A member of the RNA family "Acido-Lenti-1 RNA" from Candidatus Magnetoglobus multicellularis, 45 nucleotides long. Taxonomically the source falls in Candidatus Magnetoglobus multicellularis (Bacteria, Pseudomonadati, Thermodesulfobacteriota, Desulfobacteraceae). Pairs were carried over by alignment from the consensus structure, which is taken from published work.
RNA sequence: CCCAGGGCGUUGCCCUGGGCUUUAUUAAAUCGCGCUUUCAGCGCU
Numbered sequence: 001c002c003c004a005g006g007g008c009g010u011u012g013c014c015c016u017g018g019g020c021u022u023u024a025u026u027a028a029a030u031c032g033c034g035c036u037u038u039c040a041g042c043g044c045u
Stems, first nucleotide, its partner, number of pairs: 001019008032044005